[Rfam]
RNA sequence: CUCCCCCUCUAACACCAGUACCUUCUGAUGCAGUGAAGUGCUCUGGCUAAGGGGGUAGAGUAUCAGGCUCUCUUCCCUCCUCAGUGGAUGCUUGUGUUCCACUUGGGGCCUGAAGAGAAGCCGACAGG
Numbered sequence: 001c002u003c004c005c006c007c008u009c010u011a012a013c014a015c016c017a018g019u020a021c022c023u024u025c026u027g028a029u030g031c032a033g034u035g036a037a038g039u040g041c042u043c044u045g046g047c048u049a050a051g052g053g054g055g056u057a058g059a060g061u062a063u064c065a066g067g068c069u070c071u072c073u074u075c076c077c078u079c080c081u082c083a084g085u086g087g088a089u090g091c092u093u094g095u096g097u098u099c100c101a102c103u104u105g106g107g108g109c110c111u112g113a114a115g116a117g118a119a120g121c122c123g124a125c126a127g128g
Stems, first nucleotide, its partner, number of pairs: 003055006015046004022038004066122003071117001079108006085101004

The record is a 128-nucleotide RNA from Conger conger, which matches "Small nucleolar RNA SNORA49" in Rfam. It scores 54 bits against the family's covariance model. Rfam 15.1 lists 722 matches to the family in 550 species. By type it is an H/ACA-box small nucleolar RNA. Taxonomically the source falls in Conger (Eukaryota, Deuterostomia, Actinopteri, Teleostei).